[Rfam]
RNA sequence: AAUAGACAAAGGCAAACCUACUGAAAGGUAGCGACGCAAAGCUACGGGCCUAAGAACAUAAAGAAGAAUAUGUUUAAGGCAGCCGGGUUUCCUAU
Number, nucleotide and partner (000 for none) at each position: 001a000002a000003u000004a000005g000006a000007c000008a000009a000010a000011g000012g037013c036014a000015a000016a000017c000018c031019u030020a029021c028022u027023g000024a000025a000026a000027g022028g021029u020030a019031g018032c000033g000034a000035c000036g013037c012038a000039a000040a089041g088042c087043u086044a000045c085046g084047g083048g080049c079050c078051u000052a000053a000054g000055a074056a073057c072058a071059u070060a069061a000062a000063g000064a000065a000066g000067a000068a000069u060070a059071u058072g057073u056074u055075u000076a000077a000078g050079g049080c048081a000082g000083c047084c046085g045086g043087g042088u041089u040090u000091c000092c000093u000094a000095u000
Shown here is a 95-nucleotide RNA from Salipaludibacillus neizhouensis, a member of the family "c-di-GMP-I riboswitch aptamer".
Rfam's curators write: GEMM was predicted in a large-scale screen for bacterial structured RNA regulatory elements.
NCBI's taxonomy places the organism under Bacteria, Bacillati, Bacillota, Bacillaceae, Salipaludibacillus.